CyVA-1 RNA: a 77-nucleotide sequence from Merismopedia glauca. Rfam's curators write: Cyanobacteria, Acidobacteria (1 example), Verrucomicrobia (1 example). A search with the family's covariance model found it, with a score of 61 bits. Rfam classes the family as a small RNA. The source organism's lineage runs through Bacteria, Bacillati, Cyanobacteriota, Merismopediaceae and Merismopedia glauca. The family's consensus secondary structure is taken from published work.
RNA sequence: AACUCGGAUGGAGGUUAUACCGCAGUGAUCCAUUGCUAUAUAUUGGUGAAGAGCGACUUCAAAUAUAUAGACGAGUU
Numbered sequence: 001a002a003c004u005c006g007g008a009u010g011g012a013g014g015u016u017a018u019a020c021c022g023c024a025g026u027g028a029u030c031c032a033u034u035g036c037u038a039u040a041u042a043u044u045g046g047u048g049a050a051g052a053g054c055g056a057c058u059u060c061a062a063a064u065a066u067a068u069a070g071a072c073g074a075g076u077u
Stems, first nucleotide, its partner, number of pairs: 001077006009032004037069008